This 113-nucleotide sequence from Virgibacillus sp. SK37 belongs to the Rfam family "epsC RNA". It is annotated as a cis-regulatory element. The organism belongs to Virgibacillus, within Bacteria. A search with the family's covariance model found it, with a score of 93 bits.

[Rfam]
RNA sequence: AGGUGAUGUGUCCUUACCUUUAUCAAUGGAUAUACUCGGCUGUGCUGUGGGUUGAAUGACCUUAGACGCGUUUUGUUGUCAGGAGUGUGGCGUGAGGUGGGGUUAGAUGCCCU
Numbered sequence: 001a002g003g004u005g006a007u008g009u010g011u012c013c014u015u016a017c018c019u020u021u022a023u024c025a026a027u028g029g030a031u032a033u034a035c036u037c038g039g040c041u042g043u044g045c046u047g048u049g050g051g052u053u054g055a056a057u058g059a060c061c062u063u064a065g066a067c068g069c070g071u072u073u074u075g076u077u078g079u080c081a082g083g084a085g086u087g088u089g090g091c092g093u094g095a096g097g098u099g100g101g102g103u104u105a106g107a108u109g110c111c112c113u
Base pairs, nucleotide, nucleotide: 001019002018003017004016007034008033009032010031011030012029013028035096036095037094038093039091040090041089042088043087044086045085046084049062050061051060052059053058065080066079067078068077099113100112101111102110103109